[Rfam]
Record summary:
Shown here is a 166-nucleotide RNA from Acerihabitans arboris, a member of the family "Glm Y RNA activator of glmS mRNA".
RNA sequence: AGUUGCUCAUUCACCCCGAUAUGACAGGCCGUUUUCACUUAACCAACGGCAAUGCUUCAUAACUACCGAAUGACGCCAAAGAACGGUGCCUAUCGUCCAACCAUACCGAUAAUUGCCUCACGGCUUUAUCAUCCACAGGGCGACACGUUGAGUGAGGCACCCCCUA
Numbered sequence: 001a002g003u004u005g006c007u008c009a010u011u012c013a014c015c016c017c018g019a020u021a022u023g024a025c026a027g028g029c030c031g032u033u034u035u036c037a038c039u040u041a042a043c044c045a046a047c048g049g050c051a052a053u054g055c056u057u058c059a060u061a062a063c064u065a066c067c068g069a070a071u072g073a074c075g076c077c078a079a080a081g082a083a084c085g086g087u088g089c090c091u092a093u094c095g096u097c098c099a100a101c102c103a104u105a106c107c108g109a110u111a112a113u114u115g116c117c118u119c120a121c122g123g124c125u126u127u128a129u130c131a132u133c134c135a136c137a138g139g140g141c142g143a144c145a146c147g148u149u150g151a152g153u154g155a156g157g158c159a160c161c162c163c164c165u166a
Base pairs, nucleotide, nucleotide: 005076006075007073008072009071010070011069012068020061021060022059023058024057026056027055085161086160087159088158089157090156091155094142095141096140097139098138108130109129110128111127112126144154145153146152

The family is grouped with related families in Rfam's "Glm clan". The organism belongs to Acerihabitans, within Bacteria. This family consists of a number of bacterial RNA genes of around 167 bases in length.